[Rfam]
RNA sequence: AUCAUCAAAUGAUGAAACUCGGAAAAUCUUAGGACACCUUCCUACAUAGCUAUAUAGCUAUGGAUGAGAAUAACAUUUCCGUUCUGAUGAUGAU
Number, nucleotide and partner (000 for none) at each position: 001a094002u093003c092004a091005u090006c089007a088008a000009a000010u000011g000012a000013u000014g000015a000016a000017a000018c000019u000020c000021g000022g000023a000024a000025a000026a000027u000028c000029u000030u000031a000032g000033g000034a000035c000036a000037c000038c000039u000040u000041c000042c049043u048044a000045c000046a000047u000048a043049g042050c000051u000052a000053u000054a000055u000056a000057g000058c000059u000060a000061u000062g000063g000064a000065u000066g000067a000068g000069a000070a000071u000072a000073a000074c000075a000076u000077u000078u000079c000080c000081g000082u000083u000084c000085u000086g000087a000088u007089g006090a005091u004092g003093a002094u001